RNA sequence: GCGGGGUUGGCUUAUUAUUCCAUGGCUGGCAAUUGGGCAAAGGUGGUG
Numbered sequence: 001g002c003g004g005g006g007u008u009g010g011c012u013u014a015u016u017a018u019u020c021c022a023u024g025g026c027u028g029g030c031a032a033u034u035g036g037g038c039a040a041a042g043g044u045g046g047u048g
Stems, first nucleotide, its partner, number of pairs: 007042002010038005018031001020029002
The record is a 48-nucleotide sequence from Orthohepacivirus hominis, which matches "Hepatitis C virus stem-loop SL1412 RNA" in Rfam. Rfam's curators put it in the seed alignment. The literature on the family includes a 2016 paper in Mol Cell by Pirakitikulr et al., "The Coding Region of the HCV Genome Contains a Network of Regulatory RNA Structures". Rfam's curators write: HCV_SL1412 is a stem-loop in the coding region of the C (core) gene. NCBI's taxonomy places the organism under Viruses, Orthornavirae, Flasuviricetes, Amarillovirales, Orthohepacivirus. Rfam classes the family as a cis-regulatory element.